[Rfam]
RNA: tRNA
RNA sequence: GUCCGUCUGGCCGAGUGGUCUAAGGCGCUGCGUUCAGGUCGCAGUCUACUCUUGUAGGCGCAGGUUCGAAUCCUGCGGCGGACA
Numbered sequence: 001g002u003c004c005g006u007c008u009g010g011c012c013g014a015g016u017g018g019u020c021u022a023a024g025g026c027g028c029u030g031c032g033u034u035c036a037g038g039u040c041g042c043a044g045u046c047u048a049c050u051c052u053u054g055u056a057g058g059c060g061c062a063g064g065u066u067c068g069a070a071u072c073c074u075g076c077g078g079c080g081g082a083c084a
Base pairs, nucleotide, nucleotide: 001083002082003081004080005079006078007077010026011025012024028044029043030042031041032040060076061075062074063073064072